[Rfam]
RNA sequence: GGCGCUGUAGCCAAGCGGUAAGGCAGAGGUCUGCAAAACCUCCAUCCGGCGGUUCGAUUCCGCCCAGCGCCU
Numbered sequence: 001g002g003c004g005c006u007g008u009a010g011c012c013a014a015g016c017g018g019u020a021a022g023g024c025a026g027a028g029g030u031c032u033g034c035a036a037a038a039c040c041u042c043c044a045u046c047c048g049g050c051g052g053u054u055c056g057a058u059u060c061c062g063c064c065c066a067g068c069g070c071c072u
Stems, first nucleotide, its partner, number of pairs: 001071007010024003026042005048064005